[Rfam]
RNA sequence: GUUCUUACAAUGUUUGGUUAAAGUUAAGCGACACUUUACCGGACAUUGUUAGAACAG
Number, nucleotide and partner (000 for none) at each position: 001g055002u054003u053004c052005u051006u000007a049008c048009a047010a046011u045012g000013u043014u042015u041016g040017g039018u038019u000020a036021a035022a000023g032024u031025u030026a000027a000028g000029c000030g025031a024032c023033a000034c000035u021036u020037u000038a018039c017040c016041g015042g014043a013044c000045a011046u010047u009048g008049u007050u000051a005052g004053a003054a002055c001056a000057g000
RNA: mir-3015 microRNA precursor family
Organism: Acyrthosiphon pisum